The record is a 51-nucleotide RNA, which matches "algC RNA" in Rfam. By type it is a cis-regulatory element. The sequence is in the family's curated seed alignment. The base pairs follow the family's consensus structure, which is taken from published work.
RNA sequence: AAAAUCAUGACCCUCACCGGUCAGGGCUAACUGCUGCCUGAAGAAAGGUAA
Number, nucleotide and partner (000 for none) at each position: 001a000002a000003a000004a000005u000006c000007a000008u000009g022010a021011c020012c019013c000014u000015c000016a000017c000018c000019g012020g011021u010022c009023a000024g000025g000026g000027c000028u000029a000030a000031c000032u000033g000034c000035u000036g000037c000038c000039u000040g000041a000042a000043g000044a000045a000046a000047g000048g000049u000050a000051a000